Record summary:
A member of the RNA family "serC leader" from Amphiplicatus metriothermophilus, 53 nucleotides long.

RNA sequence: GCGCGGGCCACCUUUCCCCACCGAAAGGCGACCCAUCUGAGAGGAUGGGAGAC
Numbered sequence: 001g002c003g004c005g006g007g008c009c010a011c012c013u014u015u016c017c018c019c020a021c022c023g024a025a026a027g028g029c030g031a032c033c034c035a036u037c038u039g040a041g042a043g044g045a046u047g048g049g050a051g052a053c
Stems, first nucleotide, its partner, number of pairs: 011028006033048006

NCBI's taxonomy places the organism under Bacteria, Pseudomonadati, Alphaproteobacteria, Parvularculaceae, Amphiplicatus. A search with the family's covariance model found it, with a score of 56 bits.